RNA sequence: AAACGUUACCUUUUAUAUCGCGGGCCUUGAGAUGAAGACCCAGCGUUUACAUUUUUUGGAGUCUCACGGGAGUGAGAU
Numbered sequence: 001a002a003a004c005g006u007u008a009c010c011u012u013u014u015a016u017a018u019c020g021c022g023g024g025c026c027u028u029g030a031g032a033u034g035a036a037g038a039c040c041c042a043g044c045g046u047u048u049a050c051a052u053u054u055u056u057u058g059g060a061g062u063c064u065c066a067c068g069g070g071a072g073u074g075a076g077a078u
Stems, first nucleotide, its partner, number of pairs: 022041003026037003062077006